Lysine riboswitch aptamer: a 170-nucleotide sequence from Dorea sp. CAG:317.
RNA sequence: AGACUUGAUAGAGGCGCGGAUUUCAUCAGUAUCCGGUAAACGAUAGUUUGGAAGACUGUUUCCGGUGAAAGGGGAAUCUGCCGAAGAGAUUAGACGAUUCCAAGUUUUGUCUCUGGGACGUGGGUAGAAGAUGCCCCGUACUGUCACAGCAGUGGAGAGCUAUCAGUGUU
Numbered sequence: 001a002g003a004c005u006u007g008a009u010a011g012a013g014g015c016g017c018g019g020a021u022u023u024c025a026u027c028a029g030u031a032u033c034c035g036g037u038a039a040a041c042g043a044u045a046g047u048u049u050g051g052a053a054g055a056c057u058g059u060u061u062c063c064g065g066u067g068a069a070a071g072g073g074g075a076a077u078c079u080g081c082c083g084a085a086g087a088g089a090u091u092a093g094a095c096g097a098u099u100c101c102a103a104g105u106u107u108u109g110u111c112u113c114u115g116g117g118a119c120g121u122g123g124g125u126a127g128a129a130g131a132u133g134c135c136c137c138g139u140a141c142u143g144u145c146a147c148a149g150c151a152g153u154g155g156a157g158a159g160c161u162a163u164c165a166g167u168g169u170u
Stems, first nucleotide, its partner, number of pairs: 006165006016081009033065004038060002085114006092107004115142002118139003122136005144155004